Record summary
A member of the RNA family "mir-9223 microRNA precursor family" from Cnephaeus nilssonii, 74 nucleotides long.

RNA sequence: GGUGGUUCUCGGGUGACACACCCGGGAAUCAGCUCCCUCCUCUCUGGUUCUGAGUGUGUCACCCAAGAACCAUA
Numbered sequence: 001g002g003u004g005g006u007u008c009u010c011g012g013g014u015g016a017c018a019c020a021c022c023c024g025g026g027a028a029u030c031a032g033c034u035c036c037c038u039c040c041u042c043u044c045u046g047g048u049u050c051u052g053a054g055u056g057u058g059u060c061a062c063c064c065a066a067g068a069a070c071c072a073u074a
Base pairs, nucleotide, nucleotide: 002073003072005070006069007068008067009066011064012063013062014061015060016059017058019056020055021054023052025051026050027049028048029047030046031045032044
Dot-bracket structure: .((.(((((.(((((((.(((.(.((((((((...........))))))))).))).))))))).))))).)).

The source organism's lineage runs through Eukaryota, Euteleostomi, Dipnotetrapodomorpha, Laurasiatheria and Cnephaeus. Pairs were carried over by alignment from the consensus structure, which was predicted with RNAalifold.